[Rfam]
RNA sequence: GUGCACAGUGAACACCCAAGGAUGCUAAUGUGGCUCUCCCUGGUCUCUUACAUCUGUGCCACAGUAACUCUGAUCUGUACCUCUGCAUUAGGAGGUUCUGAUCCUCCCCUAUAUGUAUUCAACAGAUCAGAACACUU
Numbered sequence: 001g002u003g004c005a006c007a008g009u010g011a012a013c014a015c016c017c018a019a020g021g022a023u024g025c026u027a028a029u030g031u032g033g034c035u036c037u038c039c040c041u042g043g044u045c046u047c048u049u050a051c052a053u054c055u056g057u058g059c060c061a062c063a064g065u066a067a068c069u070c071u072g073a074u075c076u077g078u079a080c081c082u083c084u085g086c087a088u089u090a091g092g093a094g095g096u097u098c099u100g101a102u103c104c105u106c107c108c109c110u111a112u113a114u115g116u117a118u119u120c121a122a123c124a125g126a127u128c129a130g131a132a133c134a135c136u137u
Stems, first nucleotide, its partner, number of pairs: 003059006010053001014049001016043003020039001022037001024034003061076001063074001065072002084121002086115003090110003094106002